mir-203 microRNA precursor family: an 80-nucleotide sequence from Maylandia zebra. Rfam 15.1 lists 1,049 matches to the family in 464 species.
RNA sequence: GUCUCUCUGAUUAAGUGGUUCUCAACAGUUCAACAGUUCUUUAACAAAAUUGUGAAAUGUUUAGGACCACUUGACCAGUA
Numbered sequence: 001g002u003c004u005c006u007c008u009g010a011u012u013a014a015g016u017g018g019u020u021c022u023c024a025a026c027a028g029u030u031c032a033a034c035a036g037u038u039c040u041u042u043a044a045c046a047a048a049a050u051u052g053u054g055a056a057a058u059g060u061u062u063a064g065g066a067c068c069a070c071u072u073g074a075c076c077a078g079u080a
Stems, first nucleotide, its partner, number of pairs: 014071006021064002024061004029056004
About this RNA: Its family is annotated with miRNA-mediated post-transcriptional gene silencing and RISC complex in the Gene Ontology.